Selenocysteine transfer RNA: a 94-nucleotide RNA sequence from Nannocystis exedens.
The base pairs follow the family's consensus structure, which is taken from published work.
The family has 109 seed sequences and 4,211 matches in Rfam 15.1.
RNA sequence: GGAGGCGCUCGGCUCGCUGGUGCGGCCCCCGGUCUUCAACACCGGAGUGGGGUGCGAGGAGCGCCCUGGGCAGGUUCGAUUCCUGUGCGCCUCC
Numbered sequence: 001g002g003a004g005g006c007g008c009u010c011g012g013c014u015c016g017c018u019g020g021u022g023c024g025g026c027c028c029c030c031g032g033u034c035u036u037c038a039a040c041a042c043c044g045g046a047g048u049g050g051g052g053u054g055c056g057a058g059g060a061g062c063g064c065c066c067u068g069g070g071c072a073g074g075u076u077c078g079a080u081u082c083c084u085g086u087g088c089g090c091c092u093c094c
Base pairs, nucleotide, nucleotide: 001094002093003092004091005090006089007088008087012027014025015024016023017022029045030044031043032042033041048068049067050066051065052064071085072084073083074082